[Rfam]
Shown here is a 74-nucleotide RNA from Climacteris rufus, a member of the family "Small nucleolar RNA SNORD59".
It scores 69 bits against the family's covariance model.
The family's RNA type in Rfam is C/D-box small nucleolar RNA.
The family has 24 seed sequences and 1,355 matches in Rfam 15.1.
Taxonomically the source falls in Climacteris (Eukaryota, Sauria, Aves, Passeriformes).
Clan: SNORD59 clan.
The family's consensus secondary structure was predicted with ILM.
Nucleotides: 074
Base pairs, nucleotide, nucleotide: 001074002073003072005070
Number, partner (000 for none) and nucleotide at each position: 001074c002073c003072u004000c005070c006000u007000g008000u009000g010000a011000u012000g013000a014000u015000g016000u017000u018000c019000c020000c021000a022000a023000u024000g025000a026000c027000u028000u029000u030000c031000g032000u033000u034000c035000u036000c037000c038000u039000g040000a041000g042000c043000u044000u045000g046000c047000u048000g049000a050000a051000g052000c053000c054000a055000c056000a057000g058000g059000u060000u061000u062000u063000a064000a065000u066000c067000u068000g069000a070005g071000g072003a073002g074001g